[Rfam]
RNA sequence: CAGGGCAAACAGACAGUCGCCGCGUAUCGCGUAAGGCAUACGGGGAGGAAAGUCCGAGCUACACAGAGCAAAAAUGCCAGCUAACGGCUGGGCGUGGUAACACGACGGAAAGUGGCGCAGAAAGCAAUACCGCCGAUGGUUUGGGGCAACCCAUUCACAGGUAAGGGUGAAAAGGUGCGGUAAGAGCGCACCGCGUGGCUGGUAACAGCUUCACGGCAGGCUAAACCCCAUUUGUAGCAAGACCAAACAGAACACUUUGACGCUGCUCGCCGAGUGUUCGGGUAGGUUGCUUGAGCGUGCAAGUGAUUGUACGCCUAGAGGAAUGACUGUCCAACGACAAAACUCGGCUUAUCGUUUGCCCUGUCUU
Numbered sequence: 001c002a003g004g005g006c007a008a009a010c011a012g013a014c015a016g017u018c019g020c021c022g023c024g025u026a027u028c029g030c031g032u033a034a035g036g037c038a039u040a041c042g043g044g045g046a047g048g049a050a051a052g053u054c055c056g057a058g059c060u061a062c063a064c065a066g067a068g069c070a071a072a073a074a075u076g077c078c079a080g081c082u083a084a085c086g087g088c089u090g091g092g093c094g095u096g097g098u099a100a101c102a103c104g105a106c107g108g109a110a111a112g113u114g115g116c117g118c119a120g121a122a123a124g125c126a127a128u129a130c131c132g133c134c135g136a137u138g139g140u141u142u143g144g145g146g147c148a149a150c151c152c153a154u155u156c157a158c159a160g161g162u163a164a165g166g167g168u169g170a171a172a173a174g175g176u177g178c179g180g181u182a183a184g185a186g187c188g189c190a191c192c193g194c195g196u197g198g199c200u201g202g203u204a205a206c207a208g209c210u211u212c213a214c215g216g217c218a219g220g221c222u223a224a225a226c227c228c229c230a231u232u233u234g235u236a237g238c239a240a241g242a243c244c245a246a247a248c249a250g251a252a253c254a255c256u257u258u259g260a261c262g263c264u265g266c267u268c269g270c271c272g273a274g275u276g277u278u279c280g281g282g283u284a285g286g287u288u289g290c291u292u293g294a295g296c297g298u299g300c301a302a303g304u305g306a307u308u309g310u311a312c313g314c315c316u317a318g319a320g321g322a323a324u325g326a327c328u329g330u331c332c333a334a335c336g337a338c339a340a341a342a343c344u345c346g347g348c349u350u351a352u353c354g355u356u357u358g359c360c361c362u363g364u365c366u367u
Stems, first nucleotide, its partner, number of pairs: 001363010011352001012331007020045002023042005050350003054347005059237004066268004071233003075230002077091005092106001093104004107228002112226002114222003130166002132162003137157003174192006193217001194215005199208003241288004250279006262270002295314008